MIR535 microRNA precursor family: a 98-nucleotide sequence from Rhynchospora breviuscula. The family's consensus secondary structure was predicted with RNAalifold.

RNA sequence: UAGUGGGGUUGACAACGAGAGAGAGCACGCCGGUCGGCAUUCAUGCAGAGCCGGGCAUGGUUGUCUACUAGCGUGCUCUUUCCCGUUGUCAUCACACU
Numbered sequence: 001u002a003g004u005g006g007g008g009u010u011g012a013c014a015a016c017g018a019g020a021g022a023g024a025g026c027a028c029g030c031c032g033g034u035c036g037g038c039a040u041u042c043a044u045g046c047a048g049a050g051c052c053g054g055g056c057a058u059g060g061u062u063g064u065c066u067a068c069u070a071g072c073g074u075g076c077u078c079u080u081u082c083c084c085g086u087u088g089u090c091a092u093c094a095c096a097c098u
Base pairs, nucleotide, nucleotide: 010091011090012089013088014087016085017084020081021080023078025076026075027074028073029072030071032069033068034067